This 173-nucleotide sequence from [Enterobacter] lignolyticus belongs to the Rfam family "SraG RNA". Lineage of the source: Bacteria > Pseudomonadati > Enterobacterales > Enterobacteriaceae > [Enterobacter] lignolyticus. From the family's description: This RNA was discovered in E. coli during a large scale screen. The match comes from Rfam's covariance-model search (130 bits).
RNA sequence: CUUCUUGCAUCCUCGCGACUAAUGACAACCUUAACCCUGGCGGGUAAAGCCUCUCAUUAGCCGCGCGAACCUCUGCAAUGAAGAUCAUUUAUUGCAACAAUACAAACAAUACAUGAGUUUCCGGCGAAUUGCUGCCAUCUGGUUGAAAAAAGGGGCCGUGAAGGCCCCUCUUU
Numbered sequence: 001c002u003u004c005u006u007g008c009a010u011c012c013u014c015g016c017g018a019c020u021a022a023u024g025a026c027a028a029c030c031u032u033a034a035c036c037c038u039g040g041c042g043g044g045u046a047a048a049g050c051c052u053c054u055c056a057u058u059a060g061c062c063g064c065g066c067g068a069a070c071c072u073c074u075g076c077a078a079u080g081a082a083g084a085u086c087a088u089u090u091a092u093u094g095c096a097a098c099a100a101u102a103c104a105a106a107c108a109a110u111a112c113a114u115g116a117g118u119u120u121c122c123g124g125c126g127a128a129u130u131g132c133u134g135c136c137a138u139c140u141g142g143u144u145g146a147a148a149a150a151a152g153g154g155g156c157c158g159u160g161a162a163g164g165c166c167c168c169u170c171u172u173u
Stems, first nucleotide, its partner, number of pairs: 001083004007076003014067004019060007089127002152168006